[Rfam]
RNA sequence: CCACUACUGUUGCUAACAUGCAACUCUGUUACAUGUAAAUGGGAAUUGCACUUUAGCAAUGGUGAUGG
Numbered sequence: 001c002c003a004c005u006a007c008u009g010u011u012g013c014u015a016a017c018a019u020g021c022a023a024c025u026c027u028g029u030u031a032c033a034u035g036u037a038a039a040u041g042g043g044a045a046u047u048g049c050a051c052u053u054u055a056g057c058a059a060u061g062g063u064g065a066u067g068g
Stems, first nucleotide, its partner, number of pairs: 005064012019050005025044003
Notes: The record is a 68-nucleotide sequence from Sarcophilus harrisii, which matches "mir-367 microRNA precursor family" in Rfam. Lineage of the source: Eukaryota > Teleostomi > Sarcopterygii > Amniota > Sarcophilus. Rfam links the family to the GO terms RISC complex and miRNA-mediated post-transcriptional gene silencing.